This 88-nucleotide RNA from Scyliorhinus torazame belongs to the Rfam family "Small nucleolar SNORD12/SNORD106". Rfam classes the family as a C/D-box small nucleolar RNA.
RNA sequence: GCUCUAGUGAAUGAUGUUUAAAACUUUUUUCCCCGUCUUAUCGAUUAUGGUGAUUUUAGGAUAAGCCAAAUUAUUCUGACACUAGAAA
Numbered sequence: 001g002c003u004c005u006a007g008u009g010a011a012u013g014a015u016g017u018u019u020a021a022a023a024c025u026u027u028u029u030u031c032c033c034c035g036u037c038u039u040a041u042c043g044a045u046u047a048u049g050g051u052g053a054u055u056u057u058a059g060g061a062u063a064a065g066c067c068a069a070a071u072u073a074u075u076c077u078g079a080c081a082c083u084a085g086a087a088a
Stems, first nucleotide, its partner, number of pairs: 003086007
Its family is annotated with nucleolus and RNA processing in the Gene Ontology. The family has 8 seed sequences and 2,264 matches in Rfam 15.1. The family's consensus secondary structure was predicted with RNAalifold. On this family, see Huttenhofer et al., EMBO J 2001: "RNomics: an experimental approach that identifies 201 candidates for novel, small, non-messenger RNAs in mouse". The match comes from Rfam's covariance-model search (52 bits). The family is grouped with related families in Rfam's "SNORD12 clan".